[Rfam]
RNA sequence: AAAUGUAGUUGACUAUAAGUAUACAUAGCAGAUUGCGUAUACUAAGUACACUACGUUUUC
Numbered sequence: 001a002a003a004u005g006u007a008g009u010u011g012a013c014u015a016u017a018a019g020u021a022u023a024c025a026u027a028g029c030a031g032a033u034u035g036c037g038u039a040u041a042c043u044a045a046g047u048a049c050a051c052u053a054c055g056u057u058u059u060c
Stems, first nucleotide, its partner, number of pairs: 001058009012047003018043007

The record is a 60-nucleotide sequence from Carassius auratus, which matches "mir-728 microRNA precursor family" in Rfam. Its family is annotated with miRNA-mediated post-transcriptional gene silencing and RISC complex in the Gene Ontology. Pairs were carried over by alignment from the consensus structure, which was predicted with RNAalifold.